The family of this 115-nucleotide sequence from Prunus armeniaca is "Small nucleolar RNA Z278". Rfam links the family to the GO terms nucleolus and RNA processing.
RNA sequence: GCCUAUGAUGAUUCAAUCCGCUUGUUUGAGGUGUGGUGGAGCUGAGACCCUGUUUUCAGGGAGAACCCCUCGGCGAAGCCACAUUUCAUAUGACAUUAAUGGAUUUAGCUGAGGU
Number, nucleotide and partner (000 for none) at each position: 001g115002c114003c113004u000005a000006u000007g000008a000009u000010g000011a000012u000013u000014c000015a000016a000017u000018c000019c000020g000021c000022u000023u000024g000025u000026u000027u000028g000029a000030g000031g000032u000033g000034u000035g000036g000037u000038g000039g000040a000041g000042c000043u000044g000045a000046g000047a000048c061049c060050c059051u058052g057053u000054u000055u000056u000057c052058a051059g050060g049061g048062a000063g000064a000065a000066c000067c000068c000069c000070u000071c000072g000073g000074c000075g000076a000077a000078g000079c000080c000081a000082c000083a000084u000085u000086u000087c000088a000089u000090a000091u000092g000093a000094c000095a000096u000097u000098a000099a000100u000101g000102g000103a000104u000105u000106u000107a000108g000109c000110u000111g000112a000113g003114g002115u001

For this family Rfam cites "The high diversity of snoRNAs in plants: identification and comparative study of 120 snoRNA genes from Oryza sativa" (Chen et al., Nucleic Acids Res, 2003). Lineage of the source: Eukaryota > Tracheophyta > Magnoliopsida > fabids > Prunus. The family's RNA type in Rfam is C/D-box small nucleolar RNA. Rfam's curators write: snoZ278 is a C/D box small nucleolar RNA. Its methylation guide targets have not been reported.